RNA sequence: AGCAAAGCCCACCUGCGUGGGCUA
Number, nucleotide and partner (000 for none) at each position: 001a000002g000003c000004a000005a000006a023007g022008c021009c020010c019011a018012c017013c000014u000015g000016c000017g012018u011019g010020g009021g008022c007023u006024a000
The family of this 24-nucleotide sequence from Tolypothrix sp. NIES-4075 is "CRISPR RNA direct repeat element". Rfam 15.1 lists 331 matches to the family in 38 species. The match comes from Rfam's covariance-model search (37 bits). The family's consensus secondary structure was predicted with WAR. Lineage of the source: Bacteria > Bacillati > Cyanobacteriota > Tolypothrichaceae > Tolypothrix.